The family of this 356-nucleotide part of an RNA from Halorhabdus utahensis is "Archaeal large subunit ribosomal RNA". It scores 2873 bits against the family's covariance model.

[Rfam]
RNA sequence: CGUAGUAGCAGCGAAAGUCGGGUUAGAAUCCUGACGGCCUGAAGAGCAAGGGUUCCUCGGCACUGUUCGACAGCCGAGGGUUAGUCGAUCCUAAGAUCCGUCGCAACUCGAGCGGAUCAAAAGGGAAACUGGUUAAUAUUCCAGUACCACCGUACAUUCAAUGUCGACGCCUUGGGGUAGACCGAGCCGGGCACUCGCCCGGUCGAAUCGUCAAAACUCGUGGAAGCCGUAAUGGCACGAAGCGGGCGAACGGCGAGAUAGAGAAAUUUGGUUCAACCUGGGGCCCAUGAAAAGACAGUACGGUGCUCGUACCCAGCACCGACACAGGUGCUCUGGCGGAGAAAGCCAAGGCCUGU
Numbered sequence: 001c002g003u004a005g006u007a008g009c010a011g012c013g014a015a016a017g018u019c020g021g022g023u024u025a026g027a028a029u030c031c032u033g034a035c036g037g038c039c040u041g042a043a044g045a046g047c048a049a050g051g052g053u054u055c056c057u058c059g060g061c062a063c064u065g066u067u068c069g070a071c072a073g074c075c076g077a078g079g080g081u082u083a084g085u086c087g088a089u090c091c092u093a094a095g096a097u098c099c100g101u102c103g104c105a106a107c108u109c110g111a112g113c114g115g116a117u118c119a120a121a122a123g124g125g126a127a128a129c130u131g132g133u134u135a136a137u138a139u140u141c142c143a144g145u146a147c148c149a150c151c152g153u154a155c156a157u158u159c160a161a162u163g164u165c166g167a168c169g170c171c172u173u174g175g176g177g178u179a180g181a182c183c184g185a186g187c188c189g190g191g192c193a194c195u196c197g198c199c200c201g202g203u204c205g206a207a208u209c210g211u212c213a214a215a216a217c218u219c220g221u222g223g224a225a226g227c228c229g230u231a232a233u234g235g236c237a238c239g240a241a242g243c244g245g246g247c248g249a250a251c252g253g254c255g256a257g258a259u260a261g262a263g264a265a266a267u268u269u270g271g272u273u274c275a276a277c278c279u280g281g282g283g284c285c286c287a288u289g290a291a292a293a294g295a296c297a298g299u300a301c302g303g304u305g306c307u308c309g310u311a312c313c314c315a316g317c318a319c320c321g322a323c324a325c326a327g328g329u330g331c332u333c334u335g336g337c338g339g340a341g342a343a344a345g346c347c348a349a350g351g352c353c354u355g356u
Stems, first nucleotide, its partner, number of pairs: 017035006036353004044333004050313002055079006064072002086309003090124002095118006101111003128145005148305008163296003169284008180273005186203005208256004217246005226236003319328002334348004